Shown here is a 118-nucleotide RNA from Brachionus plicatilis, a member of the family "RAGATH-11 RNA". Lineage of the source: Eukaryota > Opisthokonta > Monogononta > Brachionidae > Brachionus. Rfam 15.1 lists 87 matches to the family in 4 species. Rfam classes the family as a small RNA. The literature on the family includes a 2015 paper in Nat Chem Biol by Weinberg et al., "New classes of self-cleaving ribozymes revealed by comparative genomics analysis". The match comes from Rfam's covariance-model search (95 bits).

[Rfam]
RNA sequence: GUUCUUUUGUAAAGAGCGCGCUUGGUUUGUGGUUCCAAGCUAGUCGUGAGUUGAGUCGAGAUCGCAGCCUUGUGGCUCGGUUGAAUGGCUCUAUUCACUGAUGAACGUCCCACAGUUU
Numbered sequence: 001g002u003u004c005u006u007u008u009g010u011a012a013a014g015a016g017c018g019c020g021c022u023u024g025g026u027u028u029g030u031g032g033u034u035c036c037a038a039g040c041u042a043g044u045c046g047u048g049a050g051u052u053g054a055g056u057c058g059a060g061a062u063c064g065c066a067g068c069c070u071u072g073u074g075g076c077u078c079g080g081u082u083g084a085a086u087g088g089c090u091c092u093a094u095u096c097a098c099u100g101a102u103g104a105a106c107g108u109c110c111c112a113c114a115g116u117u118u
Base pairs, nucleotide, nucleotide: 001017002016003015004014005013006012020040021039022038023037024036025035029113030112031111032110043102044101045100046098047097048096055089056088057087058086060082061081066077067076068075